Annotation: Fluoride riboswitch aptamer (crcB RNA motif): a 60-nucleotide sequence from Clostridium botulinum. Lineage of the source: Bacteria > Bacillati > Clostridia > Clostridiaceae > Clostridium botulinum A.
RNA sequence: AGAAUUUUGGGCGAUGGAGUUCGGCAUUAAAUGCGUGAAGCUAAUGACUCCUACAAAUAG
Numbered sequence: 001a002g003a004a005u006u007u008u009g010g011g012c013g014a015u016g017g018a019g020u021u022c023g024g025c026a027u028u029a030a031a032u033g034c035g036u037g038a039a040g041c042u043a044a045u046g047a048c049u050c051c052u053a054c055a056a057a058u059a060g
Stems, first nucleotide, its partner, number of pairs: 010025001012023002016051006033041002
Rfam links the family to the GO terms response to fluoride and positive regulation of gene expression.